[Rfam]
RNA sequence: AUUGCUGUCUUACCAGGCAAAGUUAGAUCUAGCUUGGUGUGUCUAAUACUGUCUGGUAAUGCCGUCAAU
Dot-bracket structure: .(((.((.(((((((((((..((((((..............))))))..)))))))))).).)).))).
This 69-nucleotide sequence from Ramphastos sulfuratus belongs to the Rfam family "mir-8/mir-141/mir-200 microRNA precursor family". Gene Ontology terms of the family: RISC complex and miRNA-mediated post-transcriptional gene silencing. A search with the family's covariance model found it, with a score of 59 bits. On this family, see Lagos-Quintana et al., Science 2001: "Identification of novel genes coding for small expressed RNAs".